[Rfam]
RNA: rpfG RNA
Organism: Xanthomonas campestris
RNA sequence: GGCACAGAUACUGCAUAUGCUAGGGCGGAGCUUCGGUCACGGUGUGGCCGGAGGAGUCGGUUCAGGGACCGACGUCGUCGCUUU
Numbered sequence: 001g002g003c004a005c006a007g008a009u010a011c012u013g014c015a016u017a018u019g020c021u022a023g024g025g026c027g028g029a030g031c032u033u034c035g036g037u038c039a040c041g042g043u044g045u046g047g048c049c050g051g052a053g054g055a056g057u058c059g060g061u062u063c064a065g066g067g068a069c070c071g072a073c074g075u076c077g078u079c080g081c082u083u084u
Stems, first nucleotide, its partner, number of pairs: 031053010056073006